[Rfam]
RNA sequence: CACGUCAGCGUGCUUUGCUGACGUGGCAACAAAGCGGGGCCUUAAAAGCGCGAUUUAUGUCCACGUCAGCAAAGCGCGCUGACGUGG
Numbered sequence: 001c002a003c004g005u006c007a008g009c010g011u012g013c014u015u016u017g018c019u020g021a022c023g024u025g026g027c028a029a030c031a032a033a034g035c036g037g038g039g040c041c042u043u044a045a046a047a048g049c050g051c052g053a054u055u056u057a058u059g060u061c062c063a064c065g066u067c068a069g070c071a072a073a074g075c076g077c078g079c080u081g082a083c084g085u086g087g
Base pairs, nucleotide, nucleotide: 001086002085003084004083005082006081007080008079009078010077011076012075013074014073015072016071017070018069019068020067021066023064024063025062026061029058031056032055033054035052036051038049

The family of this 87-nucleotide RNA from Gossypium schwendimanii is "MIR7486 microRNA precursor family". It scores 77 bits against the family's covariance model. The source organism's lineage runs through Eukaryota, Euphyllophyta, eudicotyledons, rosids and Gossypium.